[Rfam]
Nucleotides: 157
Stems, first nucleotide, its partner, number of pairs: 004027003028138006038079005080123003088100004103117004
Number, partner (000 for none) and nucleotide at each position: 001000g002000u003000g004027u005026c006025u007000a008000c009000a010000u011000c012000g013000a014000a015000g016000a017000a018000u019000c020000c021000g022000a023000c024000g025006g026005g027004a028138g029137c030136g031135g032134g033133g034000g035000a036000a037000c038079c039078a040077g041076g042075u043000g044000a045000a046000u047000c048000g049000c050000c051000g052000u053000g054000g055000c056000c057000g058000g059000g060000a061000a062000c063000g064000u065000u066000c067000c068000g069000g070000u071000g072000a073000c074000g075042g076041c077040u078039u079038g080123g081122g082121g083000u084000g085000a086000a087000g088100c089099c090098g091097c092000g093000u094000g095000a096000u097091g098090c099089g100088g101000c102000c103117g104116g105115g106114c107000u108000g109000c110000u111000c112000c113000a114106g115105u116104c117103c118000g119000a120000a121082u122081c123080c124000g125000a126000c127000a128000g129000c130000u131000c132000a133033c134032c135031u136030c137029g138028u139000a140000g141000g142000c143000g144000a145000c146000a147000g148000g149000a150000g151000a152000g153000g154000a155000c156000c157000c